[Rfam]
RNA sequence: CAUUGAAAAAGGCAAACUACGCCGAAAGGGUAGGACGCAAAGCCUAGGGUCUAAGGUUAAAUGCUUAAACUAUGAUCGCCUGGUUGCCAAU
Numbered sequence: 001c002a003u004u005g006a007a008a009a010a011g012g013c014a015a016a017c018u019a020c021g022c023c024g025a026a027a028g029g030g031u032a033g034g035a036c037g038c039a040a041a042g043c044c045u046a047g048g049g050u051c052u053a054a055g056g057u058u059a060a061a062u063g064c065u066u067a068a069a070c071u072a073u074g075a076u077c078g079c080c081u082g083g084u085u086g087c088c089a090a091u
Stems, first nucleotide, its partner, number of pairs: 012038002017033004022029002041085004046081003049076003056070003